[Rfam]
RNA sequence: GGGGAGAAAGGGGUCCGUAACCAAAGGUGGUCUGCGUCCUUUGGAUUCCGACCCCUCGUCUCCCC
Number, nucleotide and partner (000 for none) at each position: 001g065002g064003g063004g062005a061006g060007a059008a000009a056010g055011g054012g053013g052014u051015c050016c000017g048018u000019a000020a000021c044022c043023a042024a041025a040026g039027g038028u036029g035030g000031u000032c000033u000034g000035c029036g028037u000038c027039c026040u025041u024042u023043g022044g021045a000046u000047u000048c017049c000050g015051a014052c013053c012054c011055c010056u009057c000058g000059u007060c006061u005062c004063c003064c002065c001
RNA: mir-H7 microRNA precursor family
Organism: Simplexvirus humanalpha2